The family of this 85-nucleotide RNA sequence from Pseudolycoriella hygida is "mir-286 microRNA precursor family". Its family is annotated with miRNA-mediated post-transcriptional gene silencing and RISC complex in the Gene Ontology.

Nucleotides: 085
Base pairs, nucleotide, nucleotide: 011075012074014072015071016070019065020064021063022061023060024059027056028055029054030053031052033050034049
Number, partner (000 for none) and nucleotide at each position: 001000u002000u003000u004000a005000u006000g007000a008000u009000u010000a011075a012074g013000a014072g015071c016070g017000a018000u019065u020064g021063u022061c023060g024059g025000a026000u027056u028055a029054g030053u031052u032000g033050c034049u035000g036000u037000g038000u039000c040000a041000u042000u043000c044000g045000u046000u047000u048000u049034a050033g051000u052031g053030a054029c055028u056027a057000g058000a059024c060023c061022g062000a063021a064020c065019a066000c067000u068000c069000g070016c071015g072014u073000c074012c075011u076000c077000u078000a079000u080000u081000g082000u083000a084000a085000a
The family's consensus secondary structure was predicted with RNAalifold. A search with the family's covariance model found it, with a score of 63 bits. For this family Rfam cites "Direct sequencing and expression analysis of a large number of miRNAs in Aedes aegypti and a multispecies survey of novel mosquito miRNAs" (Li et al., BMC Genomics, 2009). The family has 15 seed sequences and 37 matches in Rfam 15.1.